[Rfam]
RNA sequence: GGCCCUAUCAUGAUGAACCAUUACGGAUGUAAAACUUUGCUUGUCUGAAAUGCGCAAACAAAACAAUGUUGAGACCUCCGUUGCCUUCCUUCUGAUCUUGUGG
Numbered sequence: 001g002g003c004c005c006u007a008u009c010a011u012g013a014u015g016a017a018c019c020a021u022u023a024c025g026g027a028u029g030u031a032a033a034a035c036u037u038u039g040c041u042u043g044u045c046u047g048a049a050a051u052g053c054g055c056a057a058a059c060a061a062a063a064c065a066a067u068g069u070u071g072a073g074a075c076c077u078c079c080g081u082u083g084c085c086u087u088c089c090u091u092c093u094g095a096u097c098u099u100g101u102g103g
Stems, first nucleotide, its partner, number of pairs: 003102001005100001024080004
Small nucleolar RNA Z13/snr52: a 103-nucleotide RNA sequence from Thermothielavioides terrestris. Lineage of the source: Eukaryota > Dikarya > sordariomyceta > Sordariomycetidae > Thermothielavioides terrestris.